This 133-nucleotide sequence from Bacillus thermotolerans belongs to the Rfam family "Ribosomal protein L20 leader". The family's RNA type in Rfam is cis-regulatory leader. This family is a putative r-protein leader autoregulatory structure found in B. subtilis and other low-GC Gram-positive bacteria. It is located in the 5' untranslated regions of mRNAs encoding initiation factor 3 followed by ribosomal proteins L35 and L20 (infC-rpmI-rplT). A Rho-independent transcription terminator structure that is probably involved in regulation is included at the 3' end.
[Rfam]
RNA sequence: ACACACAAGCAGAAGCACCCGCUUCUCACCUGAUUGACGCAUGAGCAGUUGGCAGGUUUGAAUGAAAUAACAAAAUGGCUUUUUGCGGUCAAUUUGUGCGGGUAUAUGCUUAUACCCGCACUUUUUAGUGCCU
Numbered sequence: 001a002c003a004c005a006c007a008a009g010c011a012g013a014a015g016c017a018c019c020c021g022c023u024u025c026u027c028a029c030c031u032g033a034u035u036g037a038c039g040c041a042u043g044a045g046c047a048g049u050u051g052g053c054a055g056g057u058u059u060g061a062a063u064g065a066a067a068u069a070a071c072a073a074a075a076u077g078g079c080u081u082u083u084u085g086c087g088g089u090c091a092a093u094u095u096g097u098g099c100g101g102g103u104a105u106a107u108g109c110u111u112a113u114a115c116c117c118g119c120a121c122u123u124u125u126u127a128g129u130g131c132c133u
Stems, first nucleotide, its partner, number of pairs: 011026006028057003036050003039046002097120010